[Rfam]
RNA sequence: CACACGUUCCUUAGAUCCGCCUCUGGGGAGCGUCAGUGCUCUUCUUCUGCUGCUCUCUGUGUGAGAGCAUCAGGGUCGACCGCAGCUCCCGCCAGCUUUACUGCUGUACCGUCAGAGGCGCUUGAGUCAUUGGCGUGUGAGAUCAGUCCAUCUGCUUACCCAGAAUUCUCUCUGCCCUGAACCUUCACAGGAGUCCACCAGGGCAGAGCUGCUGGGUAGCGGACACA
Numbered sequence: 001c002a003c004a005c006g007u008u009c010c011u012u013a014g015a016u017c018c019g020c021c022u023c024u025g026g027g028g029a030g031c032g033u034c035a036g037u038g039c040u041c042u043u044c045u046u047c048u049g050c051u052g053c054u055c056u057c058u059g060u061g062u063g064a065g066a067g068c069a070u071c072a073g074g075g076u077c078g079a080c081c082g083c084a085g086c087u088c089c090c091g092c093c094a095g096c097u098u099u100a101c102u103g104c105u106g107u108a109c110c111g112u113c114a115g116a117g118g119c120g121c122u123u124g125a126g127u128c129a130u131u132g133g134c135g136u137g138u139g140a141g142a143u144c145a146g147u148c149c150a151u152c153u154g155c156u157u158a159c160c161c162a163g164a165a166u167u168c169u170c171u172c173u174g175c176c177c178u179g180a181a182c183c184u185u186c187a188c189a190g191g192a193g194u195c196c197a198c199c200a201g202g203g204c205a206g207a208g209c210u211g212c213u214g215g216g217u218a219g220c221g222g223a224c225a226c227a
Stems, first nucleotide, its partner, number of pairs: 002138007010126005018120008026090006034082001036080002041075003045072001048069003054066004091107002094105003152222005159216001161214003171207008